[Rfam]
RNA sequence: GCACGAGGAACGCUGAAUUCCGCCGACGGCGGGAGCGGGGGACCCACAGGACGUUCCCCUCGUGCGAGGGGCAGGGUGAAUCCUGGAAGCCCAGGACGGGUUACUUUUUCAACCCGAACCCGGUAGCUAACCCCGUAAGCGUGGAAAGAGCGUGCGG
Numbered sequence: 001g002c003a004c005g006a007g008g009a010a011c012g013c014u015g016a017a018u019u020c021c022g023c024c025g026a027c028g029g030c031g032g033g034a035g036c037g038g039g040g041g042a043c044c045c046a047c048a049g050g051a052c053g054u055u056c057c058c059c060u061c062g063u064g065c066g067a068g069g070g071g072c073a074g075g076g077u078g079a080a081u082c083c084u085g086g087a088a089g090c091c092c093a094g095g096a097c098g099g100g101u102u103a104c105u106u107u108u109u110c111a112a113c114c115c116g117a118a119c120c121c122g123g124u125a126g127c128u129a130a131c132c133c134c135g136u137a138a139g140c141g142u143g144g145a146a147a148g149a150g151c152g153u154g155c156g157g
Stems, first nucleotide, its partner, number of pairs: 011141004018034005035136006074121003082095004098115004